Shown here is an 86-nucleotide RNA from Apolygus lucorum, a member of the family "bantam microRNA precursor family". For this family Rfam cites "Computational and transcriptional evidence for microRNAs in the honey bee genome" (Weaver et al., Genome Biol, 2007). Gene Ontology terms of the family: miRNA-mediated post-transcriptional gene silencing and RISC complex.
RNA sequence: AAAAAAAUACAAAACUGGCUUUCUCAGUGAUCUAACAGAGUGUCAUUUCAAUCGUCUGAGAUCAUUGUGAAAGCUGAUUUUGUUCG
Numbered sequence: 001a002a003a004a005a006a007a008u009a010c011a012a013a014a015c016u017g018g019c020u021u022u023c024u025c026a027g028u029g030a031u032c033u034a035a036c037a038g039a040g041u042g043u044c045a046u047u048u049c050a051a052u053c054g055u056c057u058g059a060g061a062u063c064a065u066u067g068u069g070a071a072a073g074c075u076g077a078u079u080u081u082g083u084u085c086g
Base pairs, nucleotide, nucleotide: 009083010082011081012080013079014078016076017075018074019073020072021071022070023069025067028064029063030062031061032060033059